[Rfam]
This 47-nucleotide sequence from Anisodus acutangulus belongs to the Rfam family "Plastid-rpl16 group II-D1 intron".
The source organism's lineage runs through Eukaryota, Euphyllophyta, eudicotyledons, Hyoscyameae and Anisodus.
Rfam links the family to the GO term Group II intron splicing.
From the family's description: Plastid-rpl16 is a non-coding RNA (ncRNA) recognised in plastids. It was recognised in and intronic region of a ribosome rpl16 gene.
The base pairs follow the family's consensus structure, which was predicted with LocARNA.
RNA sequence: AAGAGCUUCGAGCUAAUAAAGACCGAGAAGAUUGAUUCAAGAAUCAA
Numbered sequence: 001a002a003g004a005g006c007u008u009c010g011a012g013c014u015a016a017u018a019a020a021g022a023c024c025g026a027g028a029a030g031a032u033u034g035a036u037u038c039a040a041g042a043a044u045c046a047a
Stems, first nucleotide, its partner, number of pairs: 007041002010038003014034004